[Rfam]
RNA sequence: CCCUAGCCCCGAUGGCAGCGGCAUCCUUUUUCCUGCUUCUUUAGCAGGGAAAAGAUAUAGCGGACAGCGGGAUUAAGC
Numbered sequence: 001c002c003c004u005a006g007c008c009c010c011g012a013u014g015g016c017a018g019c020g021g022c023a024u025c026c027u028u029u030u031u032c033c034u035g036c037u038u039c040u041u042u043a044g045c046a047g048g049g050a051a052a053a054g055a056u057a058u059a060g061c062g063g064a065c066a067g068c069g070g071g072a073u074u075a076a077g078c
Stems, first nucleotide, its partner, number of pairs: 009070003013066002018061002023056003029051005035045003

The record is a 78-nucleotide RNA sequence from Flavobacterium caeni, which matches "Flavo-1 RNA" in Rfam. The base pairs follow the family's consensus structure, which is taken from published work.